[Rfam]
RNA sequence: GAGGGAAGGCCCCUCAGAAUCGACAUUCAUUUGUAGAUUCUAAACCGCCAUUGGGUGCUGCAAUUAAAAGUUGUGGUGCUGAGCGCAAUUGGAAAAGGCCGGAAAAAAAUCGGUCAGGU
Numbered sequence: 001g002a003g004g005g006a007a008g009g010c011c012c013c014u015c016a017g018a019a020u021c022g023a024c025a026u027u028c029a030u031u032u033g034u035a036g037a038u039u040c041u042a043a044a045c046c047g048c049c050a051u052u053g054g055g056u057g058c059u060g061c062a063a064u065u066a067a068a069a070g071u072u073g074u075g076g077u078g079c080u081g082a083g084c085g086c087a088a089u090u091g092g093a094a095a096a097g098g099c100c101g102g103a104a105a106a107a108a109a110u111c112g113g114u115c116a117g118g119u
Base pairs, nucleotide, nucleotide: 001015002014003013004012005011016041017040018039019038020037021036023034024033025032046118048092049091050089051088052087053086054080055079057077058076059075061073062072063071064070097115098114099113100112101111102110
RNA: Group II catalytic intron D1-D4-2
Organism: Paenibacillus hemerocallicola